[Rfam]
The record is a 140-nucleotide RNA from Otolemur garnettii, which matches "Small Cajal body specific RNA 21" in Rfam. The family has 24 seed sequences and 278 matches in Rfam 15.1. The literature on the family includes a 2006 paper in RNA by Schattner et al., "A computational screen for mammalian pseudouridylation guide H/ACA RNAs". The match comes from Rfam's covariance-model search (108 bits). Rfam describes the family as follows. scaRNAs are a specific class of small nuclear RNAs which localise to the Cajal bodies and guide the modification of RNA polymerase II transcribed spliceosomal RNAs U1, U2, U4, U5 and U12. NCBI's taxonomy places the organism under Eukaryota, Gnathostomata, Teleostomi, Tetrapoda, Otolemur. Pairs were carried over by alignment from the consensus structure, which was predicted with RNAalifold.
RNA sequence: UGACUUGGAUUUCCUGGGGGGUGAGCUCAGCACACCCCACCUCCCCUCAGCCAAGCCUAGAGUAUAGAGGCCAGGCAUCCUCUCUGUAUGAGAGGCAUUUAAGUAAGGGUCCUCACCUGGGCUAUCCAAGGCUUCUAUUG
Numbered sequence: 001u002g003a004c005u006u007g008g009a010u011u012u013c014c015u016g017g018g019g020g021g022u023g024a025g026c027u028c029a030g031c032a033c034a035c036c037c038c039a040c041c042u043c044c045c046c047u048c049a050g051c052c053a054a055g056c057c058u059a060g061a062g063u064a065u066a067g068a069g070g071c072c073a074g075g076c077a078u079c080c081u082c083u084c085u086g087u088a089u090g091a092g093a094g095g096c097a098u099u100u101a102a103g104u105a106a107g108g109g110u111c112c113u114c115a116c117c118u119g120g121g122c123u124a125u126c127c128a129a130g131g132c133u134u135c136u137a138u139u140g
Base pairs, nucleotide, nucleotide: 002057004055005054006053007052016045017044018043019042020041021040022039023038025036067134068133069132071130074127075126079121080120081119088113090111